[Rfam]
RNA: mir-305 microRNA precursor family
Organism: Photinus pyralis
RNA sequence: CAUGUCUAUUGUACUUCAUCAGGUGCUCUGGUAUGUUUUUCCCGACACCUGUUGGAGUGCACUAAUUAUG
Numbered sequence: 001c002a003u004g005u006c007u008a009u010u011g012u013a014c015u016u017c018a019u020c021a022g023g024u025g026c027u028c029u030g031g032u033a034u035g036u037u038u039u040u041c042c043c044g045a046c047a048c049c050u051g052u053u054g055g056a057g058u059g060c061a062c063u064a065a066u067u068a069u070g
Stems, first nucleotide, its partner, number of pairs: 001070004010061003014057005020051002023048003027044001030042002